[Rfam]
RNA: mir-34 microRNA precursor family
RNA sequence: GUUGUGCAGGCAGUGUUGUUAGCCGAUUGUUGUUUAGGAACAAUCACUAACUACACUACCAGUCCAAC
Numbered sequence: 001g002u003u004g005u006g007c008a009g010g011c012a013g014u015g016u017u018g019u020u021a022g023c024c025g026a027u028u029g030u031u032g033u034u035u036a037g038g039a040a041c042a043a044u045c046a047c048u049a050a051c052u053a054c055a056c057u058a059c060c061a062g063u064c065c066a067a068c
Stems, first nucleotide, its partner, number of pairs: 002067003006063001009060002012057005018051005025045007